[Rfam]
This 88-nucleotide RNA sequence from Cohnella terricola belongs to the Rfam family "c-di-GMP-I riboswitch aptamer". The match comes from Rfam's covariance-model search (84 bits). The family's consensus secondary structure is taken from published work.
RNA sequence: AUUAGCAAUGGGCAAACUUGCUGAAAAGCAAGGACGCAAAGCUAAAGGGUCUAAGGUCCUUCUGGACGAUGACAGCCUGGCUGCCGAU
Number, nucleotide and partner (000 for none) at each position: 001a000002u000003u000004a000005g000006c000007a000008a000009u000010g000011g000012g037013c036014a000015a000016a000017c032018u031019u030020g029021c028022u027023g000024a000025a000026a000027a022028g021029c020030a019031a018032g017033g000034a000035c000036g013037c012038a000039a000040a082041g081042c080043u079044a000045a000046a078047g077048g076049g073050u072051c071052u000053a000054a000055g000056g067057u066058c065059c064060u000061u000062c000063u000064g059065g058066a057067c056068g000069a000070u000071g051072a050073c049074a000075g000076c048077c047078u046079g043080g042081c041082u040083g000084c000085c000086g000087a000088u000